[Rfam]
Nucleotides: 174
Base pairs, nucleotide, nucleotide: 003172004171005170006169007168008167010165017029018028019027033117034116035068036067037066038065063115064114072092073091097113098112099111100110101109119157120156121155
Number, partner (000 for none) and nucleotide at each position: 001000a002000u003172g004171c005170g006169c007168u008167g009000g010165c011000g012000g013000g014000a015000c016000u017029c018028g019027g020000u021000g022000u023000a024000a025000u026000u027019c028018c029017g030000a031000a032000c033117c034116g035068g036067c037066g038065g039000u040000g041000a042000u043000c044000c045000a046000c047000g048000g049000u050000c051000u052000g053000a054000c055000c056000g057000u058000g059000g060000u061000a062000a063115g064114c065038c066037c067036g068035c069000g070000a071000c072092c073091c074000g075000g076000a077000c078000g079000g080000c081000u082000c083000u084000g085000c086000c087000g088000c089000c090000c091073g092072g093000u094000g095000g096000a097113c098112c099111u100110g101109g102000u103000g104000a105000g106000a107000a108000c109101c110100c111099a112098g113097g114064g115063c116034c117033g118000a119157c120156g121155g122000u123000u124000g125000a126000g127000u128000g129000c130000g131000g132000g133000c134000a135000c136000c137000c138000g139000c140000c141000c142000a143000u144000g145000c146000u147000c148000a149000g150000a151000c152000a153000g154000u155121c156120c157119g158000g159000a160000u161000g162000g163000g164000a165010g166000a167008c168007a169006g170005c171004g172003c173000a174000g